[Rfam]
RNA sequence: GGCAGGUCCGAAGGUAGUGGAUAACUCAAUUGAUCGUUCACAGUCAGUUAUAGAUUGAACUCCUUGUUUUAUUCCUUCUCCCCUUCUCGCUACUGUACUUGACUAAUCUUAC
Number, nucleotide and partner (000 for none) at each position: 001g108002g107003c000004a000005g104006g103007u102008c101009c000010g100011a099012a000013g000014g096015u095016a091017g090018u089019g088020g087021a000022u000023a000024a000025c000026u000027c000028a000029a000030u000031u000032g000033a000034u000035c000036g000037u000038u000039c000040a000041c000042a000043g073044u000045c000046a070047g069048u000049u000050a000051u000052a000053g000054a000055u000056u000057g000058a000059a000060c000061u000062c000063c000064u000065u000066g000067u000068u000069u047070u046071a000072u000073u043074c000075c000076u000077u000078c000079u000080c000081c000082c000083c000084u000085u000086c000087u020088c019089g018090c017091u016092a000093c000094u000095g015096u014097a000098c000099u011100u010101g008102a007103c006104u005105a000106a000107u002108c001109u000110u000111a000112c000

The record is a 112-nucleotide RNA from Aotus nancymaae, which matches "Y RNA" in Rfam.
The match comes from Rfam's covariance-model search (48 bits).
Y RNAs are components of the Ro ribonucleoprotein particle (Ro RNP), in association with Ro60 and La proteins. The Y RNAs and Ro60 and La proteins are well conserved, but the function of the Ro RNP is not known. In humans the RNA component can be one of four small RNAs -- hY1, hY3, hY4 and hY5. These small RNAs are predicted to fold into a conserved secondary structure containing three stem structures. The largest of the four, hY1, contains an additional hairpin. This family includes a significant number of annotated pseudogenes and the model is expected to discriminate poorly between real and Y RNA related pseudogenes.